[Rfam]
RNA sequence: AGAGUUUUUCCUUCCUCUUGAAUCGAAGGAA
Dot-bracket structure: ((((....[.[[[[))))......].]]].]

A member of the RNA family "Pseudoknot of upstream pseudoknot domain (UPD) of the 3'UTR" from Dendrobium nobile, 31 nucleotides long.
A search with the family's covariance model found it, with a score of 40 bits.
Rfam classes the family as a cis-regulatory element.
Its family is annotated with regulation of viral transcription in the Gene Ontology.
NCBI's taxonomy places the organism under Eukaryota, Streptophyta, Spermatophyta, Liliopsida, Dendrobium.